[Rfam]
RNA: Eukaryotic large subunit ribosomal RNA, nucleotides 3030 to 3424
RNA sequence: GAAUGUCGUCGCAAUGGUAAUUCAACUUAGUACGAGAGGAACCGUUGAUUCAGAUAAUUGGUAUUUGCGGCUGCCUGACAAGGCAAUGCCGCGAAGCUAUCAUCUGCCGGAUAACGGCUGAACGCCUCUAAGUCAGAAUCCGUGCCAGAAAGCGACGAUACCUUAUUCCGCGCAUCUUUGGUGCAUACAAAUAGAGCUUUGCUCCUGUAUCGUAUAAGGUGGGCGAUGGCUAGUAGAACGGAAAUGUUUAUUAGUUUGUCCACGAAAUUCCAUUGAAAAUUGUGCGGAGUCGAAUCCUUUGCAUACGACUUAAAUGUGGAACGGGGUAUUGUAAGCAGUAGAGUAGCCUUGUUGUUACGAUCUGCUGAGAUUAAGCCUUUGUUCCCAAGAUUUGU
Numbered sequence: 001g002a003a004u005g006u007c008g009u010c011g012c013a014a015u016g017g018u019a020a021u022u023c024a025a026c027u028u029a030g031u032a033c034g035a036g037a038g039g040a041a042c043c044g045u046u047g048a049u050u051c052a053g054a055u056a057a058u059u060g061g062u063a064u065u066u067g068c069g070g071c072u073g074c075c076u077g078a079c080a081a082g083g084c085a086a087u088g089c090c091g092c093g094a095a096g097c098u099a100u101c102a103u104c105u106g107c108c109g110g111a112u113a114a115c116g117g118c119u120g121a122a123c124g125c126c127u128c129u130a131a132g133u134c135a136g137a138a139u140c141c142g143u144g145c146c147a148g149a150a151a152g153c154g155a156c157g158a159u160a161c162c163u164u165a166u167u168c169c170g171c172g173c174a175u176c177u178u179u180g181g182u183g184c185a186u187a188c189a190a191a192u193a194g195a196g197c198u199u200u201g202c203u204c205c206u207g208u209a210u211c212g213u214a215u216a217a218g219g220u221g222g223g224c225g226a227u228g229g230c231u232a233g234u235a236g237a238a239c240g241g242a243a244a245u246g247u248u249u250a251u252u253a254g255u256u257u258g259u260c261c262a263c264g265a266a267a268u269u270c271c272a273u274u275g276a277a278a279a280u281u282g283u284g285c286g287g288a289g290u291c292g293a294a295u296c297c298u299u300u301g302c303a304u305a306c307g308a309c310u311u312a313a314a315u316g317u318g319g320a321a322c323g324g325g326g327u328a329u330u331g332u333a334a335g336c337a338g339u340a341g342a343g344u345a346g347c348c349u350u351g352u353u354g355u356u357a358c359g360a361u362c363u364g365c366u367g368a369g370a371u372u373a374a375g376c377c378u379u380u381g382u383u384c385c386c387a388a389g390a391u392u393u394g395u
Stems, first nucleotide, its partner, number of pairs: 005159008015147004020050001022048005051106005059099003066093005072085005108142003116134004167288007292393005298312001301309001318385006324378003328371002335365004340361001343358005